[Rfam]
RNA sequence: GCCCCCUGGCCAUGGAUAAAGAGACACCUUGCUGGUGGUGUUGUUAUAUCAGUCAGGGAUUGUACAGUUGUGUUCGUUCUAGCUUGAUGCCUGGCUUGGUGGCCAAAGCUGUUUUAUACCUAGGAUACAUAA
Numbered sequence: 001g002c003c004c005c006c007u008g009g010c011c012a013u014g015g016a017u018a019a020a021g022a023g024a025c026a027c028c029u030u031g032c033u034g035g036u037g038g039u040g041u042u043g044u045u046a047u048a049u050c051a052g053u054c055a056g057g058g059a060u061u062g063u064a065c066a067g068u069u070g071u072g073u074u075c076g077u078u079c080u081a082g083c084u085u086g087a088u089g090c091c092u093g094g095c096u097u098g099g100u101g102g103c104c105a106a107a108g109c110u111g112u113u114u115u116a117u118a119c120c121u122a123g124g125a126u127a128c129a130u131a132a
Stems, first nucleotide, its partner, number of pairs: 001061001004058005013051003023042006071127005086120001088118001092116003097111002100108001
Dot-bracket structure: (..(((((....(((.......((((((........))))))......)))..)))))..).........(((((..........(.(...(((..((.(.......).))..))).).)..))))).....
The record is a 132-nucleotide RNA sequence from Mus musculus, which matches "Small nucleolar RNA SNORA48" in Rfam. Taxonomically the source falls in Mus (Eukaryota, Eumetazoa, Tetrapoda, Rodentia). The family's consensus secondary structure was predicted with RNAalifold. The family has 24 seed sequences and 2,109 matches in Rfam 15.1. On this family, see Ofengand and Bakin, J Mol Biol 1997: "Mapping to nucleotide resolution of pseudouridine residues in large subunit ribosomal RNAs from representative eukaryotes, prokaryotes, archaebacteria, mitochondria and chloroplasts". It is annotated as an H/ACA-box small nucleolar RNA. Clan: SNORA48 clan. Rfam describes the family as follows. The snoRNA ACA 48 has been identified to guide pseudouridylation of the residue U3797 in the 28S rRNA subunit.